[Rfam]
RNA sequence: AGGGCGACCGGGUCCACCCCUCUCGUGACCACGAGGUAGUCGCGGAUCACGGUGCUGUGGCGCAUCUC
Number, nucleotide and partner (000 for none) at each position: 001a000002g000003g000004g063005c062006g061007a000008c059009c000010g000011g030012g029013u028014c000015c027016a026017c025018c000019c000020c000021u000022c000023u000024c000025g017026u016027g015028a013029c012030c011031a000032c000033g000034a000035g056036g055037u054038a053039g000040u052041c051042g050043c000044g048045g000046a000047u000048c044049a000050c042051g041052g040053u038054g037055c036056u035057g000058u000059g008060g000061c006062g005063c004064a000065u000066c000067u000068c000

The record is a 68-nucleotide sequence from Nocardia bovistercoris, which matches "ASdes TB sRNA" in Rfam. The source organism's lineage runs through Bacteria, Actinomycetes, Mycobacteriales, Nocardiaceae and Nocardia. The family's RNA type in Rfam is small RNA. For this family Rfam cites "Identification of small RNAs in Mycobacterium tuberculosis" (Arnvig and Young, Mol Microbiol, 2009).